[Rfam]
RNA sequence: AAAGCAGAGGUUGUGUGUAUCGACAUUGUGCGAAUUUGAUUCAAAUUGCACUCUGAUUGAAAGUAUUCUCUGCAAAAUCAAAAUCACUAGGCGAAGAUGGGCAGUUGUCUUUCAAUUUUUUAGUUGAUCUGUCAACAAUCAUCUUCCCCACACUU
Numbered sequence: 001a002a003a004g005c006a007g008a009g010g011u012u013g014u015g016u017g018u019a020u021c022g023a024c025a026u027u028g029u030g031c032g033a034a035u036u037u038g039a040u041u042c043a044a045a046u047u048g049c050a051c052u053c054u055g056a057u058u059g060a061a062a063g064u065a066u067u068c069u070c071u072g073c074a075a076a077a078u079c080a081a082a083a084u085c086a087c088u089a090g091g092c093g094a095a096g097a098u099g100g101g102c103a104g105u106u107g108u109c110u111u112u113c114a115a116u117u118u119u120u121u122a123g124u125u126g127a128u129c130u131g132u133c134a135a136c137a138a139u140c141a142u143c144u145u146c147c148c149c150a151c152a153c154u155u
Stems, first nucleotide, its partner, number of pairs: 004073007015051005090149002093146008104136004
RNA: small nucleolar RNA snoR135